[Rfam]
The family of this 109-nucleotide RNA from Panicum virgatum is "mir-395 microRNA precursor family". The match comes from Rfam's covariance-model search (78 bits). Pairs were carried over by alignment from the consensus structure, which was predicted with PFOLD. NCBI's taxonomy places the organism under Eukaryota, Magnoliopsida, Panicoideae, Panicinae, Panicum sect. Hiantes. Rfam's curators write: mir-395 was identified in both Arabidopsis thaliana and Oryza sativa computationally and was later experimentally verified. mir-395 is thought to target mRNAs coding for ATP sulphurylases. The mature sequence is excised from the 3' arm of the hairpin.
RNA sequence: GUGUUACCAUGAGUUCCCUUCAAACACUUCACGUGAGGCAACAUUACAAAAUACUCUUUUAAGAGUUUUAUGUGCAAUGUGAAGUGUUUGGGGGAACUCUCGGUGAUAC
Numbered sequence: 001g002u003g004u005u006a007c008c009a010u011g012a013g014u015u016c017c018c019u020u021c022a023a024a025c026a027c028u029u030c031a032c033g034u035g036a037g038g039c040a041a042c043a044u045u046a047c048a049a050a051a052u053a054c055u056c057u058u059u060u061a062a063g064a065g066u067u068u069u070a071u072g073u074g075c076a077a078u079g080u081g082a083a084g085u086g087u088u089u090g091g092g093g094g095a096a097c098u099c100u101c102g103g104u105g106a107u108a109c
Base pairs, nucleotide, nucleotide: 005105006104007103008102011099012098013097014096015095016094017093018092019091020090022089023088024087025086026085027084028083029082030081031080032079033078034077